[Rfam]
RNA sequence: UUCUUAUUGGAUUAUGAUUAUCACAUGUCAUGUUCUGAUUGAAUGUCAACUCCAUAAAAGAUGAAAUAAAUUGUUGUUUUCAUUGACCAAUGAGAACAUGACGCGUGAUCCAAUAAUA
Numbered sequence: 001u002u003c004u005u006a007u008u009g010g011a012u013u014a015u016g017a018u019u020a021u022c023a024c025a026u027g028u029c030a031u032g033u034u035c036u037g038a039u040u041g042a043a044u045g046u047c048a049a050c051u052c053c054a055u056a057a058a059a060g061a062u063g064a065a066a067u068a069a070a071u072u073g074u075u076g077u078u079u080u081c082a083u084u085g086a087c088c089a090a091u092g093a094g095a096a097c098a099u100g101a102c103g104c105g106u107g108a109u110c111c112a113a114u115a116a117u118a
Stems, first nucleotide, its partner, number of pairs: 020109004026103001029100003033096004038091003
RNA: MIR1520 microRNA precursor family
Organism: Glycine max